Annotation:
This 71-nucleotide sequence from Aquarana catesbeiana belongs to the Rfam family "mir-10 microRNA precursor family". The family's consensus secondary structure was predicted with PFOLD. For this family Rfam cites "microRNAs: tiny regulators with great potential" (Ambros, Cell, 2001). Rfam 15.1 lists 3,853 matches to the family in 853 species. A search with the family's covariance model found it, with a score of 61 bits.
[Rfam]
RNA sequence: UGCCAUAAACCCGUAGAUCCGAACUUGUGCUGUGCCCUUCUCACAAGCUCGAGUGUGCGGGUCUGUGUCGG
Dot-bracket structure: .(.((((..(((..(.((.(((.((((((............)))))).))).)).)..)))..)))).)..